[Rfam]
RNA: mir-17 microRNA precursor family
Organism: Neolamprologus brichardi
Nucleotides: 077
Base pairs, nucleotide, nucleotide: 004074005073006072007071010068011067013064014063015062016061017060018059020057021056023054025052026051027050029049030048031047032046033045
Number, partner (000 for none) and nucleotide at each position: 001000c002000c003000u004074g005073c006072a007071g008000u009000u010068c011067c012000a013064a014063a015062g016061u017060g018059c019000u020057c021056a022000c023054a024000g025052u026051g027050c028000a029049g030048g031047u032046a033045g034000u035000a036000a037000a038000c039000g040000c041000u042000c043000a044000u045033c046032u047031a048030c049029u050027g051026c052025a053000g054023u055000u056021u057020g058000u059018g060017c061016a062015c063014u064013u065000g066000a067011g068010g069000u070000a071007u072006u073005g074004c075000u076000g077000g